[Rfam]
The family of this 96-nucleotide RNA sequence from Geotrichum candidum is "Small nucleolar RNA snR48". Clan: SNORD60 clan. Rfam classes the family as a C/D-box small nucleolar RNA. A search with the family's covariance model found it, with a score of 68 bits. The source organism's lineage runs through Eukaryota, saccharomyceta, Dipodascomycetes, Dipodascaceae and Geotrichum.
RNA sequence: AUAUAGUGAUGAUCCAAACUCACAUAUGUUUUUUCUGGCAUCUCUAAUGCUAGAGGCUUCGGCCUCGAUGAAUUUAACCUUGACUAAUAUCUGAGA
Number, nucleotide and partner (000 for none) at each position: 001a000002u000003a000004u000005a000006g000007u000008g000009a000010u000011g000012a000013u000014c000015c000016a000017a000018a000019c000020u000021c000022a000023c000024a000025u000026a000027u000028g000029u000030u000031u000032u000033u000034u000035c000036u000037g000038g000039c000040a000041u000042c000043u000044c000045u000046a000047a000048u000049g000050c000051u000052a000053g000054a065055g064056g063057c062058u000059u000060c000061g000062g057063c056064c055065u054066c000067g000068a000069u000070g000071a000072a000073u000074u000075u000076a000077a000078c000079c000080u000081u000082g000083a000084c000085u000086a000087a000088u000089a000090u000091c000092u000093g000094a000095g000096a000